[Rfam]
Notes:
A member of the RNA family "chrB-a RNA" from Roseibium sp. TrichSKD4, 83 nucleotides long. The family has 163 seed sequences and 347 matches in Rfam 15.1. It is one of the family's seed sequences.
RNA sequence: CUCAUGGGGUUUGCGAAUACCCCGUGAGGCGAUGGCCCAAAUUCGCGUCCUUUUAAUCCUGAAACAUGGAAGGGCGCAUCAUG
Number, nucleotide and partner (000 for none) at each position: 001c000002u000003c000004a000005u024006g023007g022008g021009g020010u019011u000012u000013g000014c000015g000016a000017a000018u000019a010020c009021c008022c007023c006024g005025u000026g000027a000028g000029g000030c000031g000032a000033u000034g000035g000036c000037c000038c000039a000040a000041a000042u000043u000044c000045g077046c076047g075048u074049c073050c072051u071052u070053u000054u000055a000056a000057u000058c000059c000060u000061g000062a000063a000064a000065c000066a000067u000068g000069g000070a052071a051072g050073g049074g048075c047076g046077c045078a000079u000080c000081a000082u000083g000